[Rfam]
RNA sequence: CGUCUUGAAGAUGAGGAGCUUGUCACGUUCAUCCUUACCGGUCUCGGCGAGGAGUUUGAACCAAUUGUGUCUGCUGUCUCCUCUCGGGUUGAGCCGAUUACUGUCAAUGAGCUUUACGCUCAACUCGCUGCGUUUGAAC
Numbered sequence: 001c002g003u004c005u006u007g008a009a010g011a012u013g014a015g016g017a018g019c020u021u022g023u024c025a026c027g028u029u030c031a032u033c034c035u036u037a038c039c040g041g042u043c044u045c046g047g048c049g050a051g052g053a054g055u056u057u058g059a060a061c062c063a064a065u066u067g068u069g070u071c072u073g074c075u076g077u078c079u080c081c082u083c084u085c086g087g088g089u090u091g092a093g094c095c096g097a098u099u100a101c102u103g104u105c106a107a108u109g110a111g112c113u114u115u116a117c118g119c120u121c122a123a124c125u126c127g128c129u130g131c132g133u134u135u136g137a138a139c
Stems, first nucleotide, its partner, number of pairs: 005137004088108005
About this RNA: Small nucleolar RNA Z247: a 139-nucleotide sequence from Sorghum bicolor. For this family Rfam cites "The high diversity of snoRNAs in plants: identification and comparative study of 120 snoRNA genes from Oryza sativa" (Chen et al., Nucleic Acids Res, 2003). It is annotated as a C/D-box small nucleolar RNA. Rfam 15.1 lists 7,071 matches to the family in 142 species.